[Rfam]
Notes:
DUF805b RNA: a 37-nucleotide sequence from Niastella populi. It scores 43 bits against the family's covariance model.

RNA sequence: UAAGGGAAAGCCGAAAACCUGAAUAAUAGAGUAGGCA
Number, nucleotide and partner (000 for none) at each position: 001u000002a000003a020004g019005g018006g000007a000008a000009a000010g036011c035012c034013g000014a000015a000016a000017a000018c005019c004020u003021g000022a000023a000024u000025a000026a000027u000028a000029g000030a000031g000032u000033a000034g012035g011036c010037a000
By type it is a cis-regulatory element.